[Rfam]
RNA sequence: UCCUGCAUCGAAAGUGAUUGUGGGCUGCCCGUGCCCUGGUCAUCGAUACUGCAGGGAGAGGAGUCUCUGAAAGACAUUUCCCCGUGUUUGAAGGGCCCAGCCGUCCCUUCCAAACCCUGAAGCUUUCACACA
Numbered sequence: 001u002c003c004u005g006c007a008u009c010g011a012a013a014g015u016g017a018u019u020g021u022g023g024g025c026u027g028c029c030c031g032u033g034c035c036c037u038g039g040u041c042a043u044c045g046a047u048a049c050u051g052c053a054g055g056g057a058g059a060g061g062a063g064u065c066u067c068u069g070a071a072a073g074a075c076a077u078u079u080c081c082c083c084g085u086g087u088u089u090g091a092a093g094g095g096c097c098c099a100g101c102c103g104u105c106c107c108u109u110c111c112a113a114a115c116c117c118u119g120a121a122g123c124u125u126u127c128a129c130a131c132a
Base pairs, nucleotide, nucleotide: 001056002055003054004053005052006051007050014043015042016041017040018039019038020037022036023035024034025033068128069127070126071125072124073123086115087114088113089112090111091109092108093107094106095105
The family of this 132-nucleotide RNA sequence from Capra hircus is "Small nucleolar RNA SNORA71". From the family's description: The members of this family belong to the H/ACA class of snoRNAs which bind a number of proteins (including dyskerin, Gar1p and Nop10p) to form snoRNP complexes. Rfam links the family to the GO terms RNA processing and nucleolus. It scores 119 bits against the family's covariance model. Rfam classes the family as an H/ACA-box small nucleolar RNA. The literature on the family includes a 1997 paper in Genes Dev by Ganot et al., "The family of box ACA small nucleolar RNAs is defined by an evolutionarily conserved secondary structure and ubiquitous sequence elements essential for RNA accumulation". Taxonomically the source falls in Capra (Eukaryota, Opisthokonta, Deuterostomia, Boreoeutheria).